[Rfam]
RNA: Makes More Granules Regulator RNA (mmgR)
RNA sequence: AGGGCGUGCCUUUCAGGCAUCCUCUCCUAAACCUUUCAUGGGCUGGUCCACGGACCGGCCCUUUUUUUUGCCCGAA
Numbered sequence: 001a002g003g004g005c006g007u008g009c010c011u012u013u014c015a016g017g018c019a020u021c022c023u024c025u026c027c028u029a030a031a032c033c034u035u036u037c038a039u040g041g042g043c044u045g046g047u048c049c050a051c052g053g054a055c056c057g058g059c060c061c062u063u064u065u066u067u068u069u070g071c072c073c074g075a076a
Stems, first nucleotide, its partner, number of pairs: 008018004040061009